[Rfam]
RNA sequence: UAGUUUUGAAGAGGUCGCAUGAAUCAUCAGUAUGAUUAGCUAGGUGGACAAACGCUGGAACUAAUCAGAAAGGGAAACGUGCCGAAACAACUUACUGUUUGUCCGGUAAGGAGUUGGGGGAUUGUUGAAGAAGCAAUUCACUGUCGUGGAAAUCACGGAGCGCUUCGUUAAAG
Numbered sequence: 001u002a003g004u005u006u007u008g009a010a011g012a013g014g015u016c017g018c019a020u021g022a023a024u025c026a027u028c029a030g031u032a033u034g035a036u037u038a039g040c041u042a043g044g045u046g047g048a049c050a051a052a053c054g055c056u057g058g059a060a061c062u063a064a065u066c067a068g069a070a071a072g073g074g075a076a077a078c079g080u081g082c083c084g085a086a087a088c089a090a091c092u093u094a095c096u097g098u099u100u101g102u103c104c105g106g107u108a109a110g111g112a113g114u115u116g117g118g119g120g121a122u123u124g125u126u127g128a129a130g131a132a133g134c135a136a137u138u139c140a141c142u143g144u145c146g147u148g149g150a151a152a153u154c155a156c157g158g159a160g161c162g163c164u165u166c167g168u169u170a171a172a173g
Base pairs, nucleotide, nucleotide: 007167008166009165010164011163017082018081019080020079021078024075025074033067034066035065036064037063038062039061086115087114088113091110092109093108094107095106096105097104116142117141119139120138121137122136123135124134125133126132144158145157146156147155148154